[Rfam]
RNA sequence: CUUCCCCUCCCUCCAGUCACUCUGUCCCCAGUGGAGUGGUCUGGCAUUGAUGGGAUAGAGCACCACGGCUAUCUCGCCUCUCUCAUUUAAGACAUUCACCUUAAAUUAGGCUUGUGAGAGAGCUGACAAU
Numbered sequence: 001c002u003u004c005c006c007c008u009c010c011c012u013c014c015a016g017u018c019a020c021u022c023u024g025u026c027c028c029c030a031g032u033g034g035a036g037u038g039g040u041c042u043g044g045c046a047u048u049g050a051u052g053g054g055a056u057a058g059a060g061c062a063c064c065a066c067g068g069c070u071a072u073c074u075c076g077c078c079u080c081u082c083u084c085a086u087u088u089a090a091g092a093c094a095u096u097c098a099c100c101u102u103a104a105a106u107u108a109g110g111c112u113u114g115u116g117a118g119a120g121a122g123c124u125g126a127c128a129a130u
Base pairs, nucleotide, nucleotide: 003055004054005053006052007049013044014043015042016041018039019037020036021035022034023033067124068123069122073120074119082109083108085106086105087104088103089102090101091100

The family of this 130-nucleotide sequence from Salmo trutta is "Small nucleolar RNA SNORA49". Rfam classes the family as an H/ACA-box small nucleolar RNA.